Annotation: The record is an 85-nucleotide RNA from Macleaya cordata, which matches "Small nucleolar RNA Z161/Z228" in Rfam. The family's RNA type in Rfam is C/D-box small nucleolar RNA. Clan: SNORD35 clan. The source organism's lineage runs through Eukaryota, Streptophytina, Embryophyta, Papaveroideae and Macleaya. Pairs were carried over by alignment from the consensus structure, which was predicted with PFOLD.
[Rfam]
RNA sequence: AGACCAGAUGAUGAAAAUUGAUUUUAAUCUCACGAUGGUCAUCAGAGACUUUGUGUCGAUGUUGAUUCAAAUCUUUUUGAUGGUU
Numbered sequence: 001a002g003a004c005c006a007g008a009u010g011a012u013g014a015a016a017a018u019u020g021a022u023u024u025u026a027a028u029c030u031c032a033c034g035a036u037g038g039u040c041a042u043c044a045g046a047g048a049c050u051u052u053g054u055g056u057c058g059a060u061g062u063u064g065a066u067u068c069a070a071a072u073c074u075u076u077u078u079g080a081u082g083g084u085u
Stems, first nucleotide, its partner, number of pairs: 001085002004082001047057003